[Rfam]
RNA sequence: AAAGGAGCAAUAGCUUCCCUCUUGUUUUAUCAAGAGGGUGUUAUUGCUCCUUAUAAA
Numbered sequence: 001a002a003a004g005g006a007g008c009a010a011u012a013g014c015u016u017c018c019c020u021c022u023u024g025u026u027u028u029a030u031c032a033a034g035a036g037g038g039u040g041u042u043a044u045u046g047c048u049c050c051u052u053a054u055a056a057a
Stems, first nucleotide, its partner, number of pairs: 002052013019036006
Overview: Shown here is a 57-nucleotide RNA sequence from Mikania micrantha, a member of the family "Plastid-psbA-3 3UTR RNA". Rfam's curators write: Plastid psbA-3 is a non-coding RNA (ncRNA) present in plastids. The family's consensus secondary structure was predicted with LocARNA. Rfam classes the family as a cis-regulatory element.